Small nucleolar RNA Z221/R21b: a 95-nucleotide RNA from Zingiber officinale. The literature on the family includes a 2003 paper in Nucleic Acids Res by Chen et al., "The high diversity of snoRNAs in plants: identification and comparative study of 120 snoRNA genes from Oryza sativa". The base pairs follow the family's consensus structure, which was predicted with WAR. It scores 53 bits against the family's covariance model.
RNA sequence: AGGCGAUGAUGAAGAAUGAAGUCAUGCACCACGCCGAUGAGAUUUAGAGUCUCAUGUGCUGACACCAGAUAUUCUACCCAUUGUUAUCUGAGCCU
Numbered sequence: 001a002g003g004c005g006a007u008g009a010u011g012a013a014g015a016a017u018g019a020a021g022u023c024a025u026g027c028a029c030c031a032c033g034c035c036g037a038u039g040a041g042a043u044u045u046a047g048a049g050u051c052u053c054a055u056g057u058g059c060u061g062a063c064a065c066c067a068g069a070u071a072u073u074c075u076a077c078c079c080a081u082u083g084u085u086a087u088c089u090g091a092g093c094c095u
Stems, first nucleotide, its partner, number of pairs: 001095004